Shown here is a 71-nucleotide sequence from Aleadryas rufinucha, a member of the family "Small nucleolar RNA SNORD66". It is annotated as a C/D-box small nucleolar RNA. Rfam links the family to the GO terms RNA processing and nucleolus. Lineage of the source: Eukaryota > Sauropsida > Archosauria > Neoaves > Aleadryas. snoRNA HBII-142 is part of the C/D family of snoRNAs.
RNA sequence: UUCCUCUGGUGAGCUCUUGGUAGUGCCACCUUCUUCACUGUGAUAAGAUGAAAGGAUUGAGGCUUGGGGAA
Number, nucleotide and partner (000 for none) at each position: 001u071002u070003c069004c068005u000006c000007u000008g000009g000010u000011g000012a000013g000014c000015u000016c000017u000018u000019g000020g000021u000022a000023g000024u000025g000026c000027c000028a000029c000030c000031u000032u000033c000034u000035u000036c000037a000038c000039u000040g000041u000042g000043a000044u000045a000046a000047g000048a000049u000050g000051a000052a000053a000054g000055g000056a000057u000058u000059g000060a000061g000062g000063c000064u000065u000066g000067g000068g004069g003070a002071a001